[Rfam]
RNA sequence: AUACUUACCUGGCAGGGGAGAUACCAUGAUCACAAAGGUGGGUUUCCCAGAGCGAGGCUUAUCCAUUGCACUCCAGAUGUGCUGACCCCUGCAAUAUCCCCAAAUGUGGGAAACUUGACUGCAUAAUUUGUGGUAGUGGGGGACUGCAUUCGAGCUCUCCCCUG
Numbered sequence: 001a002u003a004c005u006u007a008c009c010u011g012g013c014a015g016g017g018g019a020g021a022u023a024c025c026a027u028g029a030u031c032a033c034a035a036a037g038g039u040g041g042g043u044u045u046c047c048c049a050g051a052g053c054g055a056g057g058c059u060u061a062u063c064c065a066u067u068g069c070a071c072u073c074c075a076g077a078u079g080u081g082c083u084g085a086c087c088c089c090u091g092c093a094a095u096a097u098c099c100c101c102a103a104a105u106g107u108g109g110g111a112a113a114c115u116u117g118a119c120u121g122c123a124u125a126a127u128u129u130g131u132g133g134u135a136g137u138g139g140g141g142g143a144c145u146g147c148a149u150u151c152g153a154g155c156u157c158u159c160c161c162c163u164g
Base pairs, nucleotide, nucleotide: 012122013121014120015119016048017047018046019045020044021043024041025040026039027038049090050089052087054086056083057082058081060079061078062077063076092117093116094115095113097111099109100108138163139162140161141160142159143158146155147154
RNA: U1 spliceosomal RNA